[Rfam]
RNA sequence: AUCUACGUGCCUUGCUGUCGAGACCCUAUCAAUAUUGCCUCUGCUUUUUUGUGUAUAAAUGGAGUAGUGCAAUAUUGCUUAUAGGGUCUUGACUUUGAGGAAUG
Dot-bracket structure: ...................(((((((((((((((((((..(((((................).)))).)))))))))...))))))))))..............
Source information:
Rfam assigns this 104-nucleotide RNA from Synaphobranchus kaupii to the family "mir-454 microRNA precursor family". A reference for the family is Chen et al. (2005), "The developmental miRNA profiles of zebrafish as determined by small RNA cloning", Genes Dev. Pairs were carried over by alignment from the consensus structure, which was predicted with RNAalifold. A search with the family's covariance model found it, with a score of 89 bits. NCBI's taxonomy places the organism under Eukaryota, Metazoa, Gnathostomata, Elopocephala, Synaphobranchus.